[Rfam]
RNA sequence: GUCGAGGCCGGUAGUGCGAGCUUGUAACCCAAGCGGGGACAUUAAGAUGGCUGGACACCGAGCCUGUUUCACUCGGUAGGUUCUUGUCCGGACAAUUUAUUGACUCGCCCGUUCCAAGUUGGGAGUUGGUUGCACGAUCCUUGCGUAAGCUUGGCUUGUGUGAUCACUAAAGCGGAGGGCCCCGCGUCAGGCUCGCUUCACAGAGCACAGCGAACACCUCUCUCUCUUGACAGCGGAAGGAUAACGAGUUGAUGUGUCCUAGUUCCAACUCAGCCUGGUGAUCUGACUCGGUUGAACAACCAUUUUU
Numbered sequence: 001g002u003c004g005a006g007g008c009c010g011g012u013a014g015u016g017c018g019a020g021c022u023u024g025u026a027a028c029c030c031a032a033g034c035g036g037g038g039a040c041a042u043u044a045a046g047a048u049g050g051c052u053g054g055a056c057a058c059c060g061a062g063c064c065u066g067u068u069u070c071a072c073u074c075g076g077u078a079g080g081u082u083c084u085u086g087u088c089c090g091g092a093c094a095a096u097u098u099a100u101u102g103a104c105u106c107g108c109c110c111g112u113u114c115c116a117a118g119u120u121g122g123g124a125g126u127u128g129g130u131u132g133c134a135c136g137a138u139c140c141u142u143g144c145g146u147a148a149g150c151u152u153g154g155c156u157u158g159u160g161u162g163a164u165c166a167c168u169a170a171a172g173c174g175g176a177g178g179g180c181c182c183c184g185c186g187u188c189a190g191g192c193u194c195g196c197u198u199c200a201c202a203g204a205g206c207a208c209a210g211c212g213a214a215c216a217c218c219u220c221u222c223u224c225u226c227u228u229g230a231c232a233g234c235g236g237a238a239g240g241a242u243a244a245c246g247a248g249u250u251g252a253u254g255u256g257u258c259c260u261a262g263u264u265c266c267a268a269c270u271c272a273g274c275c276u277g278g279u280g281a282u283c284u285g286a287c288u289c290g291g292u293u294g295a296a297c298a299a300c301c302a303u304u305u306u307u
Base pairs, nucleotide, nucleotide: 001040002039003038004023005022006021009018010017028037029036030035044306045305046304047303048302049301050300052298053297056294057293058291059290060289062287064285066283069281070280071279072278073277075275076274077273079266080265083262084261086259090257092255095253100252101251102250103249104248105247106246107245109240110239112238113237114236115235118231119230120229121228122227123226124225125224127166128165129164130163131162132161133160134159135158136157137156139154140153143150144149167172174221175220176219177218178217185212186211187210192203193202
Dot-bracket structure: ((((((..((......))..)))....(((....))))))...(((((((.((..(((((.(.(.(..(((((.(((.((..((.(...(.(..(....((((((((.((.((((..((((((((.(((((((((((.((..((....))..)).)))))))))))(....).(((((......(((....((........))......)))....)))))..))))))))...))))))....))))))))).).).).))..))......))).))))).).).).))).))..)).))))))).